[Rfam]
RNA: Iron response element II
Organism: Collichthys lucidus
RNA sequence: ACAUUAUCGGGAGCAGUGCCUUCUAUAAUUU
Numbered sequence: 001a002c003a004u005u006a007u008c009g010g011g012a013g014c015a016g017u018g019c020c021u022u023c024u025a026u027a028a029u030u031u
Base pairs, nucleotide, nucleotide: 001031003029004028005027006026007025009024010023011022012021013020014018